Notes:
The record is a 130-nucleotide RNA, which matches "RT-5 RNA" in Rfam. It is annotated as a small RNA. The sequence is in the family's curated seed alignment.
RNA sequence: CUGCAUCUGUGGAGGACGAAGCAUAUUUCUGUUUCUGGAGGAUUAUUUAUAAUCUGCCGGAAAGUCUUGCAGGUGGCUGGGAUAUGUUCAGUCUGGUAGAAUUAAGCACGCUUUAAUUCCUUCAAAGCAU
Numbered sequence: 001c002u003g004c005a006u007c008u009g010u011g012g013a014g015g016a017c018g019a020a021g022c023a024u025a026u027u028u029c030u031g032u033u034u035c036u037g038g039a040g041g042a043u044u045a046u047u048u049a050u051a052a053u054c055u056g057c058c059g060g061a062a063a064g065u066c067u068u069g070c071a072g073g074u075g076g077c078u079g080g081g082a083u084a085u086g087u088u089c090a091g092u093c094u095g096g097u098a099g100a101a102u103u104a105a106g107c108a109c110g111c112u113u114u115a116a117u118u119c120c121u122u123c124a125a126a127g128c129a130u
Stems, first nucleotide, its partner, number of pairs: 005074007014094002017091001021087006028081002063078004102116005
Dot-bracket structure: ....(((((((..[[.[...[[[[[[.[[.................................[[[[.)))))))]]]].]]]]]]]]...].]].......(((((.....)))))..............